[Rfam]
RNA sequence: UCGGAAAAAGCCAAACCCAUUGUAAAGUGGGGACGGAAAGCCACGGGUCCAGAAAUGGAUAGCCGGGUUGCUGCUC
Numbered sequence: 001u002c003g004g005a006a007a008a009a010g011c012c013a014a015a016c017c018c019a020u021u022g023u024a025a026a027g028u029g030g031g032g033a034c035g036g037a038a039a040g041c042c043a044c045g046g047g048u049c050c051a052g053a054a055a056u057g058g059a060u061a062g063c064c065g066g067g068u069u070g071c072u073g074c075u076c
Stems, first nucleotide, its partner, number of pairs: 004072001011036002016031006034062001039069004044065003047060003
Source information: This 76-nucleotide RNA belongs to the Rfam family "c-di-GMP-I-GGC riboswitch aptamer". The match comes from Rfam's covariance-model search (65 bits). The family's consensus secondary structure is taken from published work.